[Rfam]
RNA sequence: CCGUUUUGGUCCCUUAACUUUAUUGAAAGUAUCGGUUUGGUCCUUUCUGUUAAUUUAAUUCAAAAAAACGUUAAAUUUUGAUCCCUUAUCUUAUUUAAUUAGUAUUAGUUUGGUCCCUUAACUUAUUUAAUUAGUAUUAGUUUGGUCCCUAAACUUAACGUUUUUUUGAAUUAAAUUAACAUAAAGAUCAAACCGAUACUUUAAAUAAAGUUAAGGGACCUAAAC
Numbered sequence: 001c002c003g004u005u006u007u008g009g010u011c012c013c014u015u016a017a018c019u020u021u022a023u024u025g026a027a028a029g030u031a032u033c034g035g036u037u038u039g040g041u042c043c044u045u046u047c048u049g050u051u052a053a054u055u056u057a058a059u060u061c062a063a064a065a066a067a068a069c070g071u072u073a074a075a076u077u078u079u080g081a082u083c084c085c086u087u088a089u090c091u092u093a094u095u096u097a098a099u100u101a102g103u104a105u106u107a108g109u110u111u112g113g114u115c116c117c118u119u120a121a122c123u124u125a126u127u128u129a130a131u132u133a134g135u136a137u138u139a140g141u142u143u144g145g146u147c148c149c150u151a152a153a154c155u156u157a158a159c160g161u162u163u164u165u166u167u168g169a170a171u172u173a174a175a176u177u178a179a180c181a182u183a184a185a186g187a188u189c190a191a192a193c194c195g196a197u198a199c200u201u202u203a204a205a206u207a208a209a210g211u212u213a214a215g216g217g218a219c220c221u222a223a224a225c
Base pairs, nucleotide, nucleotide: 004224005223006222008220009219010218012216013215014214015213016212017211018210019209020208021207022206023205024204026202027201028200
Shown here is a 225-nucleotide RNA from Medicago truncatula, a member of the family "MIR2655 microRNA precursor family". Rfam 15.1 lists 892 matches to the family in 5 species. Gene Ontology terms of the family: RISC complex and miRNA-mediated post-transcriptional gene silencing. Pairs were carried over by alignment from the consensus structure, which was predicted with RNAalifold.